[Rfam]
RNA sequence: UCAGACAAGUAGAAGCACCCGCUUCUCACCUGAUCGACGUCAGAACGACAGUUGGCAGGUUCAAAAGAGUCUUCUUUUAUGAAUACGGAAGAUUUGGUGUAGUGUGGGUGCAGUAUGUAUGCCACACUUUUUUUAAUGG
Numbered sequence: 001u002c003a004g005a006c007a008a009g010u011a012g013a014a015g016c017a018c019c020c021g022c023u024u025c026u027c028a029c030c031u032g033a034u035c036g037a038c039g040u041c042a043g044a045a046c047g048a049c050a051g052u053u054g055g056c057a058g059g060u061u062c063a064a065a066a067g068a069g070u071c072u073u074c075u076u077u078u079a080u081g082a083a084u085a086c087g088g089a090a091g092a093u094u095u096g097g098u099g100u101a102g103u104g105u106g107g108g109u110g111c112a113g114u115a116u117g118u119a120u121g122c123c124a125c126a127c128u129u130u131u132u133u134u135a136a137u138g139g
Base pairs, nucleotide, nucleotide: 011026012025013024014023015022016021028060029059030058036053037052038051039049040048103126104125105124106123107122108120109119110118111117112116
RNA: Ribosomal protein L20 leader
Organism: Melghiribacillus thermohalophilus